[Rfam]
RNA: ZMP/ZTP riboswitch aptamer (pfl RNA motif)
Organism: Streptomyces sp. 846.5
RNA sequence: AAGGCGGGCCGUAACUGGCGCUUGGGUGGACGACCACCGGGGAGCGACCCGCCUUCAGAGCGAAGCCGCGCGCCUGGGCACUCCCU
Dot-bracket structure: ..((((((.(((..(([[[[[....((((....))))..))..))).))))))...........(((..]]]]]..))).......